Rfam assigns this 102-nucleotide sequence from Pollutimonas harenae to the family "TPP riboswitch aptamer (THI element)". The source organism's lineage runs through Bacteria, Pseudomonadota, Betaproteobacteria, Alcaligenaceae and Pollutimonas. The match comes from Rfam's covariance-model search (60 bits). The base pairs follow the family's consensus structure, which is taken from published work.
[Rfam]
RNA sequence: CGCAACGACACGGGGUGCCGGGCCUGAAAAGGUCGGCUGAGAUCAACACCCGUCGAACCUGAAACAGUUAGCACUGGCGAAGGGAUGUCGGCCUUGAGGCCA
Numbered sequence: 001c002g003c004a005a006c007g008a009c010a011c012g013g014g015g016u017g018c019c020g021g022g023c024c025u026g027a028a029a030a031g032g033u034c035g036g037c038u039g040a041g042a043u044c045a046a047c048a049c050c051c052g053u054c055g056a057a058c059c060u061g062a063a064a065c066a067g068u069u070a071g072c073a074c075u076g077g078c079g080a081a082g083g084g085a086u087g088u089c090g091g092c093c094u095u096g097a098g099g100c101c102a
Stems, first nucleotide, its partner, number of pairs: 006090005011052004016046001017037005058083003065076003